[Rfam]
RNA sequence: UCUCAUGCGGCGAUUCUCUAGAGGGGUGCACUUUUUUUGACUUGAAAGAAAAGAAGGUGCGUCUCUUUAGAGGAUUACUGUUAGAGA
Numbered sequence: 001u002c003u004c005a006u007g008c009g010g011c012g013a014u015u016c017u018c019u020a021g022a023g024g025g026g027u028g029c030a031c032u033u034u035u036u037u038u039g040a041c042u043u044g045a046a047a048g049a050a051a052a053g054a055a056g057g058u059g060c061g062u063c064u065c066u067u068u069a070g071a072g073g074a075u076u077a078c079u080g081u082u083a084g085a086g087a
Stems, first nucleotide, its partner, number of pairs: 001087004007081004012076003016072003020068016038052001
RNA: mir-515 microRNA precursor family
Organism: Cebus imitator